[Rfam]
RNA sequence: CAGUUGGGAGGCCUGCAAACAGCGGGUAGCCGGGGUCUCCCGCUCUGCUG
Numbered sequence: 001c002a003g004u005u006g007g008g009a010g011g012c013c014u015g016c017a018a019a020c021a022g023c024g025g026g027u028a029g030c031c032g033g034g035g036u037c038u039c040c041c042g043c044u045c046u047g048c049u050g
Stems, first nucleotide, its partner, number of pairs: 001050004006045003011027006031042004
RNA: DUF3800-VI RNA